[Rfam]
RNA sequence: AGGUCGGGCGAGUGUCUUUGGGACGACACUCAAGAAUAGGCCGAACCACAACCCGUUCUCAGAUGUGCGCAUCGCCGGUCCCCGACGGCAAUGCG
Number, nucleotide and partner (000 for none) at each position: 001a000002g042003g041004u040005c039006g000007g000008g000009c000010g031011a030012g029013u028014g027015u026016c025017u000018u000019u000020g000021g000022g000023a000024c000025g016026a015027c014028a013029c012030u011031c010032a000033a000034g000035a000036a000037u000038a000039g005040g004041c003042c002043g000044a000045a000046c000047c000048a000049c000050a000051a000052c000053c000054c000055g000056u000057u000058c000059u000060c000061a000062g000063a000064u000065g000066u000067g000068c095069g094070c093071a092072u091073c000074g089075c088076c087077g086078g000079u000080c000081c000082c000083c000084g000085a000086c077087g076088g075089c074090a000091a072092u071093g070094c069095g068
Rfam assigns this 95-nucleotide sequence to the family "Rhodo-rpoB RNA".